[Rfam]
Rfam assigns this 197-nucleotide RNA sequence from Streptomyces somaliensis to the family "Actinobacteria sRNA Ms_IGR-5". By type it is a small RNA. The source organism's lineage runs through Bacteria, Bacillati, Actinomycetes, Streptomyces and Streptomyces somaliensis. Pairs were carried over by alignment from the consensus structure. It scores 69 bits against the family's covariance model.

RNA sequence: ACACGAGAGAGGAGGUGAUCCGGAAGUGGUUUCUUUUCGGAUGCGUGAGGUGACUGCGGGCUGAGGCCUGCCGUCACACGGCGGCAGGCCUCCUGCCGUACACCGAGCAGUCACCGGCCCGCGGGCUCGUCGGCACAUCCGGCCGACCCCUCCCGUCCUCACCGACGGGAGGGACCGGAGCCCGCGGGCUUCCUCGU
Numbered sequence: 001a002c003a004c005g006a007g008a009g010a011g012g013a014g015g016u017g018a019u020c021c022g023g024a025a026g027u028g029g030u031u032u033c034u035u036u037u038c039g040g041a042u043g044c045g046u047g048a049g050g051u052g053a054c055u056g057c058g059g060g061c062u063g064a065g066g067c068c069u070g071c072c073g074u075c076a077c078a079c080g081g082c083g084g085c086a087g088g089c090c091u092c093c094u095g096c097c098g099u100a101c102a103c104c105g106a107g108c109a110g111u112c113a114c115c116g117g118c119c120c121g122c123g124g125g126c127u128c129g130u131c132g133g134c135a136c137a138u139c140c141g142g143c144c145g146a147c148c149c150c151u152c153c154c155g156u157c158c159u160c161a162c163c164g165a166c167g168g169g170a171g172g173g174a175c176c177g178g179a180g181c182c183c184g185c186g187g188g189c190u191u192c193c194u195c196g197u
Stems, first nucleotide, its partner, number of pairs: 015057003019053001059097003063092002066089004071084003116190012129147006